[Rfam]
RNA: c-di-AMP riboswitch aptamer (ydaO/yuaA leader)
RNA sequence: CGGGGAUCGCCGCUCAAUCGCCCGAAGGGCGAGCCGGGGAACCACGUUCCUUGGGGUGAAUCCGCACAUAAGCGGUAGGGAUCACUUCCAUCCCGAACCCGUCAGCUAACUCGGUCGGCGGCCGACGGAAGGAAAU
Numbered sequence: 001c002g003g004g005g006a007u008c009g010c011c012g013c014u015c016a017a018u019c020g021c022c023c024g025a026a027g028g029g030c031g032a033g034c035c036g037g038g039g040a041a042c043c044a045c046g047u048u049c050c051u052u053g054g055g056g057u058g059a060a061u062c063c064g065c066a067c068a069u070a071a072g073c074g075g076u077a078g079g080g081a082u083c084a085c086u087u088c089c090a091u092c093c094c095g096a097a098c099c100c101g102u103c104a105g106c107u108a109a110c111u112c113g114g115u116c117g118g119c120g121g122c123c124g125a126c127g128g129a130a131g132g133a134a135a136u
Base pairs, nucleotide, nucleotide: 011120012119013118014117018032019031020030033115034114035113036112037111038110043053044052054100055099056098062075063074064073065072078094079093080092081091